[Rfam]
RNA sequence: UGCCCGGCCCAGGGCGUACAAAACGGGCAGCGCAGGGGAAGCGACCCCCGAUAUCAAAGCGUA
Numbered sequence: 001u002g003c004c005c006g007g008c009c010c011a012g013g014g015c016g017u018a019c020a021a022a023a024c025g026g027g028c029a030g031c032g033c034a035g036g037g038g039a040a041g042c043g044a045c046c047c048c049c050g051a052u053a054u055c056a057a058a059g060c061g062u063a
Stems, first nucleotide, its partner, number of pairs: 001016004008027003035049004
The family of this 63-nucleotide sequence is "GP20-b RNA". It is annotated as a cis-regulatory element.